Nucleotides: 066
Base pairs, nucleotide, nucleotide: 001054002053003052004051005050006049007048008047011022012021013020028044029043030042031041035066036065037064038063039062
Number, partner (000 for none) and nucleotide at each position: 001054g002053c003052c004051a005050c006049c007048c008047c009000u010000a011022g012021c013020c014000c015000g016000g017000c018000c019000a020013g021012g022011c023000g024000a025000a026000a027000a028044g029043c030042g031041g032000a033000c034000a035066c036065c037064u038063u039062c040000a041031c042030c043029g044028c045000c046000u047008g048007g049006g050005g051004u052003g053002g054001c055000a056000c057000c058000u059000u060000u061000u062039g063038a064037a065036g066035g